[Rfam]
RNA sequence: UUACCACUCUGGCCUAAUGGCUUAGAUCAAGUGUAGUAUCUGUUCUUAAUAGUCUAACCACUAUUACGGAGGCACGCCUCCUAUAUCGGUUAUCCUAUUUUUGCCGCCCCGUUGUCAUUGGGCUCUGCUUGCACCCCUCGGAUGUCGAUGACCUUCCUGCUGCACUGCCGGGUAGCGUCGUCGGGGGAUC
Numbered sequence: 001u002u003a004c005c006a007c008u009c010u011g012g013c014c015u016a017a018u019g020g021c022u023u024a025g026a027u028c029a030a031g032u033g034u035a036g037u038a039u040c041u042g043u044u045c046u047u048a049a050u051a052g053u054c055u056a057a058c059c060a061c062u063a064u065u066a067c068g069g070a071g072g073c074a075c076g077c078c079u080c081c082u083a084u085a086u087c088g089g090u091u092a093u094c095c096u097a098u099u100u101u102u103g104c105c106g107c108c109c110c111g112u113u114g115u116c117a118u119u120g121g122g123c124u125c126u127g128c129u130u131g132c133a134c135c136c137c138u139c140g141g142a143u144g145u146c147g148a149u150g151a152c153c154u155u156c157c158u159g160c161u162g163c164a165c166u167g168c169c170g171g172g173u174a175g176c177g178u179c180g181u182c183g184g185g186g187g188a189u190c
Base pairs, nucleotide, nucleotide: 008026009025010024011022012021013020014019047066048065049064050063051062052061068081069080070079071078072077114143115142116141120137121136126133127132146183147182148181149180150179151178153175154174156172157171158170
U2 spliceosomal RNA: a 190-nucleotide sequence from Galerina marginata. The base pairs follow the family's consensus structure, which is taken from published work. It scores 96 bits against the family's covariance model. Its Rfam clan is "U2 clan". NCBI's taxonomy places the organism under Eukaryota, Dikarya, Agaricineae, Galerina, Galerina marginata.